[Rfam]
RNA sequence: GCGGUUCCGGUUCACGUCGCGGCUUCCCGCCCGGCGACCCGGCGGCC
Numbered sequence: 001g002c003g004g005u006u007c008c009g010g011u012u013c014a015c016g017u018c019g020c021g022g023c024u025u026c027c028c029g030c031c032c033g034g035c036g037a038c039c040c041g042g043c044g045g046c047c
Stems, first nucleotide, its partner, number of pairs: 003047003007042004015036005021031003
Rfam assigns this 47-nucleotide RNA to the family "L31-Actinobacteria ribosomal protein leader". The sequence is in the family's curated seed alignment.